[Rfam]
About this RNA: Fungal signal recognition particle RNA: a 281-nucleotide RNA from Monilinia laxa. The base pairs follow the family's consensus structure, which is taken from published work. The match comes from Rfam's covariance-model search (147 bits). Taxonomically the source falls in Monilinia (Eukaryota, Ascomycota, sordariomyceta, Helotiales). Gene Ontology terms of the family: signal recognition particle, plasma membrane targeting, signal recognition particle, endoplasmic reticulum targeting and SRP-dependent cotranslational protein targeting to membrane, signal sequence recognition. By type it is a non-coding RNA gene.
RNA sequence: UGACUGUAACGGUCAUAAGGUUAAGGCGAGCCCACGCUCCUCGACACCCACAUUCAAAGUAUCAAUCUAACGAUUGGUGCCACCAACAGUGCCCAGUCCGAACACUGCGGUGACAGCCCACUCGUGCAGGAAACUCACGAUGCUGCGGUUGUCUUAAGCAAUGAAGAUAACUUCUUGAGGGAGGCCUCACUCUGCAGAGAGAUCUUCACCGUGGUGUGGCGGUAUUGGAAUACAUUCGUCGUGUGGUUUGGAGAUGGGGUUUAGGUUGGGUUUCAACUUUU
Numbered sequence: 001u002g003a004c005u006g007u008a009a010c011g012g013u014c015a016u017a018a019g020g021u022u023a024a025g026g027c028g029a030g031c032c033c034a035c036g037c038u039c040c041u042c043g044a045c046a047c048c049c050a051c052a053u054u055c056a057a058a059g060u061a062u063c064a065a066u067c068u069a070a071c072g073a074u075u076g077g078u079g080c081c082a083c084c085a086a087c088a089g090u091g092c093c094c095a096g097u098c099c100g101a102a103c104a105c106u107g108c109g110g111u112g113a114c115a116g117c118c119c120a121c122u123c124g125u126g127c128a129g130g131a132a133a134c135u136c137a138c139g140a141u142g143c144u145g146c147g148g149u150u151g152u153c154u155u156a157a158g159c160a161a162u163g164a165a166g167a168u169a170a171c172u173u174c175u176u177g178a179g180g181g182a183g184g185c186c187u188c189a190c191u192c193u194g195c196a197g198a199g200a201g202a203u204c205u206u207c208a209c210c211g212u213g214g215u216g217u218g219g220c221g222g223u224a225u226u227g228g229a230a231u232a233c234a235u236u237c238g239u240c241g242u243g244u245g246g247u248u249u250g251g252a253g254a255u256g257g258g259g260u261u262u263a264g265g266u267u268g269g270g271u272u273u274c275a276a277c278u279u280u281u
Stems, first nucleotide, its partner, number of pairs: 001015004018279005024273002034271002037268001039265002047258004053252005061078007081245003084241001086239002089235003093228005098222003102217009112150003116146002119142002122140005128135002154158001162208007172201005181192003
Annotation
The family is grouped with related families in Rfam's "SRP clan".